[Rfam]
RNA: Archaeal large subunit ribosomal RNA, nucleotides 2602 to 2844
RNA sequence: AGUGCCGGAGGAUAAGACCCCUUUAAUACGAGAGGAACGAGGGAUCGGCGCCACUGGUGUACCGGUUGUGUAAGCAUUGCCGGGUAGCUACGCGCCCAAUGGAUAAGUCCUGAAAGCAUCUAAGGACGAAGCCAAACCCGAAACGAGGCACUGGAGCGGUCGCAAUAGACGACUUUGAUAGGACGGGUGCGUAAGCAGGGAGCUUUUGCGACCUGUGAACAUUCCGUUACUAAAGCUCAACUU
Numbered sequence: 001a002g003u004g005c006c007g008g009a010g011g012a013u014a015a016g017a018c019c020c021c022u023u024u025a026a027u028a029c030g031a032g033a034g035g036a037a038c039g040a041g042g043g044a045u046c047g048g049c050g051c052c053a054c055u056g057g058u059g060u061a062c063c064g065g066u067u068g069u070g071u072a073a074g075c076a077u078u079g080c081c082g083g084g085u086a087g088c089u090a091c092g093c094g095c096c097c098a099a100u101g102g103a104u105a106a107g108u109c110c111u112g113a114a115a116g117c118a119u120c121u122a123a124g125g126a127c128g129a130a131g132c133c134a135a136a137c138c139c140g141a142a143a144c145g146a147g148g149c150a151c152u153g154g155a156g157c158g159g160u161c162g163c164a165a166u167a168g169a170c171g172a173c174u175u176u177g178a179u180a181g182g183a184c185g186g187g188u189g190c191g192u193a194a195g196c197a198g199g200g201a202g203c204u205u206u207u208g209c210g211a212c213c214u215g216u217g218a219a220c221a222u223u224c225c226g227u228u229a230c231u232a233a234a235g236c237u238c239a240a241c242u243u
Base pairs, nucleotide, nucleotide: 001152002151003150004149005148006147010139011138013136016046017045019043020042021041022040023039047096048095049094050093051092055090056089057088062083063082064081065080066079067076068075069074100134101133102132107127108126109125110124111123154238155237156236157235158174159173160172161171162170179232180231181230182228183227184226185225186224187222188221189220192217195216196215197214198213199212202209